RNA sequence: GCACAUCUCCAGUUUGUGCCUGAAUCAAACCCCAUCUCAGCUGUCCAUCUGUCUGAUGGCUAAUCCAACGGUGUUAGAUUCACGCACAAACUCGUGAUCUGUCU
Number, nucleotide and partner (000 for none) at each position: 001g102002c101003a100004c000005a098006u097007c096008u000009c000010c000011a092012g091013u090014u089015u088016g087017u086018g085019c084020c000021u082022g081023a080024a079025u078026c077027a000028a075029a074030c073031c000032c071033c070034a000035u000036c000037u000038c000039a000040g000041c000042u000043g061044u000045c059046c000047a000048u000049c000050u000051g000052u000053c000054u000055g000056a000057u000058g000059g045060c000061u043062a000063a000064u000065c000066c000067a000068a000069c000070g033071g032072u000073g030074u029075u028076a000077g026078a025079u024080u023081c022082a021083c000084g019085c018086a017087c016088a015089a014090a013091c012092u011093c000094g000095u000096g007097a006098u005099c000100u003101g002102u001103c000104u000

MIR403 microRNA precursor family: a 104-nucleotide RNA from Malus domestica. It scores 93 bits against the family's covariance model. For this family Rfam cites "High throughput approaches reveal splicing of primary microRNA transcripts and tissue specific expression of mature microRNAs in Vitis vinifera" (Mica et al., BMC Genomics, 2009).